The record is a 131-nucleotide RNA from Danionella cerebrum, which matches "Small nucleolar RNA SNORA9" in Rfam. Rfam links the family to the GO terms RNA processing and nucleolus. The source organism's lineage runs through Eukaryota, Vertebrata, Teleostomi, Ostariophysi and Danionella. The match comes from Rfam's covariance-model search (97 bits). ACA9 is a member of the H/ACA class of snoRNA that guide the sites of modification of uridines to pseudouridines. Pairs were carried over by alignment from the consensus structure, which was predicted with PFOLD. The family's RNA type in Rfam is H/ACA-box small nucleolar RNA.

RNA sequence: UUGCAGGCUGUUCAGCGAGGCCGAGUCUGAUGUGACUUUGUCCUUUCCUGUUAGGUCUGCUAGAAUGAAAUGGAGUUGUUUGAAGCCCUGUUGUUCUUCAUACAGCAUGGUUAUAGAAACUCCAGACAUCC
Dot-bracket structure: ..((((((.........(((..(((((......)))))...)))..........))))))..........(((((..........((.(((.((.......)).))).)).........))))).......
Numbered sequence: 001u002u003g004c005a006g007g008c009u010g011u012u013c014a015g016c017g018a019g020g021c022c023g024a025g026u027c028u029g030a031u032g033u034g035a036c037u038u039u040g041u042c043c044u045u046u047c048c049u050g051u052u053a054g055g056u057c058u059g060c061u062a063g064a065a066u067g068a069a070a071u072g073g074a075g076u077u078g079u080u081u082g083a084a085g086c087c088c089u090g091u092u093g094u095u096c097u098u099c100a101u102a103c104a105g106c107a108u109g110g111u112u113a114u115a116g117a118a119a120c121u122c123c124a125g126a127c128a129u130c131c
Stems, first nucleotide, its partner, number of pairs: 003060006018044003023038005071124005086110002089107003093103002